[Rfam]
Nucleotides: 035
Stems, first nucleotide, its partner, number of pairs: 002021004010034003
Number, partner (000 for none) and nucleotide at each position: 001000u002021a003020g004019g005018a006000g007000a008000u009000a010034c011033c012032u013000g014000a015000a016000a017000a018005u019004c020003c021002u022000u023000u024000a025000a026000a027000g028000a029000g030000u031000a032012g033011g034010g035000a